RNA: Insertion sequence IS1222 ribosomal frameshifting element
Organism: Erwinia sorbitola
RNA sequence: AGCGCUUCAGAUGGCUCUCGCCAAAAGUAUCAACGACAGAUCAGAAGCGGGAAGCCGUGGUGGUGAUAUGUUAUUCAACCGGUCUGUAGCAACGUCAUACCUGCAGACUCACAGAUG
Numbered sequence: 001a002g003c004g005c006u007u008c009a010g011a012u013g014g015c016u017c018u019c020g021c022c023a024a025a026a027g028u029a030u031c032a033a034c035g036a037c038a039g040a041u042c043a044g045a046a047g048c049g050g051g052a053a054g055c056c057g058u059g060g061u062g063g064u065g066a067u068a069u070g071u072u073a074u075u076c077a078a079c080c081g082g083u084c085u086g087u088a089g090c091a092a093c094g095u096c097a098u099a100c101c102u103g104c105a106g107a108c109u110c111a112c113a114g115a116u117g
Base pairs, nucleotide, nucleotide: 034089036087037086038085039084040083041082042081047058048057049056050055062079064077065076